[Rfam]
RNA sequence: ACCGCUGAGCCAUCUCUUCAGCCCCCAAAAUGAUUCUUUUAAAAAAAAAAACAUUGUGGGGCUGGUGAGAUGGCUCAGUGGG
Numbered sequence: 001a002c003c004g005c006u007g008a009g010c011c012a013u014c015u016c017u018u019c020a021g022c023c024c025c026c027a028a029a030a031u032g033a034u035u036c037u038u039u040u041a042a043a044a045a046a047a048a049a050a051a052c053a054u055u056g057u058g059g060g061g062c063u064g065g066u067g068a069g070a071u072g073g074c075u076c077a078g079u080g081g082g
Stems, first nucleotide, its partner, number of pairs: 002081015018065007

This 82-nucleotide sequence from Mus spicilegus belongs to the Rfam family "mir-3473 microRNA precursor family". Gene Ontology terms of the family: miRNA-mediated post-transcriptional gene silencing, RISC complex and cellular response to mechanical stimulus. The source organism's lineage runs through Eukaryota, Euarchontoglires, Glires, Muroidea and Mus. The match comes from Rfam's covariance-model search (75 bits).